[Rfam]
RNA sequence: UAAUAUUAAAUAAAAUAAAUUCGUAUAUGCUUAAUGAUAUGGGUUAAGCGUUUCUACUAGGAGCCGAAAACUUCCUUGCUACGAAUAUGUGAUUAGUAAUA
Numbered sequence: 001u002a003a004u005a006u007u008a009a010a011u012a013a014a015a016u017a018a019a020u021u022c023g024u025a026u027a028u029g030c031u032u033a034a035u036g037a038u039a040u041g042g043g044u045u046a047a048g049c050g051u052u053u054c055u056a057c058u059a060g061g062a063g064c065c066g067a068a069a070a071c072u073u074c075c076u077u078g079c080u081a082c083g084a085a086u087a088u089g090u091g092a093u094u095a096g097u098a099a100u101a
Base pairs, nucleotide, nucleotide: 019086020085021084022083023082024081025080029049030048031047032046033045034044035043059076060075061074062073063071